[Rfam]
RNA sequence: GGGGAGAGUGCAGGAUCUUGGGCUGUGGCCACUGGCGCCCUGGGCUCUGGGGCCUGCACCAUGGGAAUCAUGCUCCCUGGCCCCGCAGCCCCCU
Numbered sequence: 001g002g003g004g005a006g007a008g009u010g011c012a013g014g015a016u017c018u019u020g021g022g023c024u025g026u027g028g029c030c031a032c033u034g035g036c037g038c039c040c041u042g043g044g045c046u047c048u049g050g051g052g053c054c055u056g057c058a059c060c061a062u063g064g065g066a067a068u069c070a071u072g073c074u075c076c077c078u079g080g081c082c083c084c085g086c087a088g089c090c091c092c093c094u
Base pairs, nucleotide, nucleotide: 001094002093003092004091006089010086011085013082014081017080018079020076021075022074024072025071026070027069029065032064033061034060035059037057038056042054044053045052046051
Source information:
Shown here is a 94-nucleotide sequence from Canis lupus, a member of the family "mir-8799 microRNA precursor family". Taxonomically the source falls in Canis lupus (Eukaryota, Opisthokonta, Boreoeutheria, Canidae). It scores 63 bits against the family's covariance model. The base pairs follow the family's consensus structure, which was predicted with RNAalifold. Clan: mir-8791 microRNA precursor clan.